[Rfam]
RNA sequence: CCAGGGAGGUGGCCGGGGCCAGCUCCCUGGAGGUGUUUGG
Numbered sequence: 001c002c003a004g005g006g007a008g009g010u011g012g013c014c015g016g017g018g019c020c021a022g023c024u025c026c027c028u029g030g031a032g033g034u035g036u037u038u039g040g
Stems, first nucleotide, its partner, number of pairs: 001030006

Shown here is a 40-nucleotide RNA sequence from Psilopogon haemacephalus, a member of the family "Prion pseudoknot".
Rfam links the family to the GO term translation.
On this family, see Barrette et al., Nucleic Acids Res 2001: "Pseudoknots in prion protein mRNAs confirmed by comparative sequence analysis and pattern searching".
This family represents a predicted pseudoknot structure found in prion protein mRNA. It has been suggested that the family has a possible effect in prion protein translation.